Annotation: The record is a 497-nucleotide part of an RNA from Bursaphelenchus xylophilus, which matches "Eukaryotic large subunit ribosomal RNA" in Rfam. The base pairs follow the family's consensus structure, which is taken from published work. The match comes from Rfam's covariance-model search (2954 bits).
[Rfam]
RNA sequence: CCUCCGAAGUUUCCCUCAGGAUAGCUGGUGCACAUUCAAACAGAUAUACUCGGUAAAGCGAACGAUUAGAGUUCUUGGGAUGUAUUAUUCUCAGACUAUUCUCAAACUCUAAAUGGUUAUGAUGUUGGUGUUGCUUAAUUGAACACUGACUUUGAUUGUUGUGCUCCAAGUGGGCCAUUUUUGGUAAGCAGAACUGGCGAUGUGGGAUGAACCAAACGCGGAGUUACGGUGCCUAACUAUUCGCUCAUGAGACCCCAUGAAAGGUGUUGGUUGAUAUAGACAGCAGGACGGUGGCCAUGGAAGUCGGAAUCCGCUAAGGAGUGUGUAACAACUCACCUGCCGAAUCAACUAGCCCUGAAAAUGGAUGGCGCUCGAGCGAAUGACCUAUACUCUGCCGUCGUUGAGACCCGAGCAAUCUCUCGACGAGUAGGAGGUACGUUGUAAUGGCGUUGAAGUUGUUGGGCGUGAGCCCGAAUGGAGCCGUUAUGAGUGCAGAU
Numbered sequence: 001c002c003u004c005c006g007a008a009g010u011u012u013c014c015c016u017c018a019g020g021a022u023a024g025c026u027g028g029u030g031c032a033c034a035u036u037c038a039a040a041c042a043g044a045u046a047u048a049c050u051c052g053g054u055a056a057a058g059c060g061a062a063c064g065a066u067u068a069g070a071g072u073u074c075u076u077g078g079g080a081u082g083u084a085u086u087a088u089u090c091u092c093a094g095a096c097u098a099u100u101c102u103c104a105a106a107c108u109c110u111a112a113a114u115g116g117u118u119a120u121g122a123u124g125u126u127g128g129u130g131u132u133g134c135u136u137a138a139u140u141g142a143a144c145a146c147u148g149a150c151u152u153u154g155a156u157u158g159u160u161g162u163g164c165u166c167c168a169a170g171u172g173g174g175c176c177a178u179u180u181u182u183g184g185u186a187a188g189c190a191g192a193a194c195u196g197g198c199g200a201u202g203u204g205g206g207a208u209g210a211a212c213c214a215a216a217c218g219c220g221g222a223g224u225u226a227c228g229g230u231g232c233c234u235a236a237c238u239a240u241u242c243g244c245u246c247a248u249g250a251g252a253c254c255c256c257a258u259g260a261a262a263g264g265u266g267u268u269g270g271u272u273g274a275u276a277u278a279g280a281c282a283g284c285a286g287g288a289c290g291g292u293g294g295c296c297a298u299g300g301a302a303g304u305c306g307g308a309a310u311c312c313g314c315u316a317a318g319g320a321g322u323g324u325g326u327a328a329c330a331a332c333u334c335a336c337c338u339g340c341c342g343a344a345u346c347a348a349c350u351a352g353c354c355c356u357g358a359a360a361a362u363g364g365a366u367g368g369c370g371c372u373c374g375a376g377c378g379a380a381u382g383a384c385c386u387a388u389a390c391u392c393u394g395c396c397g398u399c400g401u402u403g404a405g406a407c408c409c410g411a412g413c414a415a416u417c418u419c420u421c422g423a424c425g426a427g428u429a430g431g432a433g434g435u436a437c438g439u440u441g442u443a444a445u446g447g448c449g450u451u452g453a454a455g456u457u458g459u460u461g462g463g464c465g466u467g468a469g470c471c472c473g474a475a476u477g478g479a480g481c482c483g484u485u486a487u488g489a490g491u492g493c494a495g496a497u
Base pairs, nucleotide, nucleotide: 001434002433003432004431005430010023012021013020014019026168027167028166030164031163032162045121046120047119048118050116051115056110057108058107064103065102068099070097071096072095075094076093077092078091079090080089081087124150125149126148127147128146129145130144131143132142174198175197176196177195179193180192181191182190183189203214204213205212218395219394220393221392222391224389228385229384230383237382239381242378243377244376262356263355264354266353267352268351269350270349271348272347273346274345275344283340284339285338286337287336289313290312291311295307296306314318319334323332324331396425397424398423399422400421403419404418405417437492439489440488441487442486443485444484445483446482447481448480455476456475462471463470464469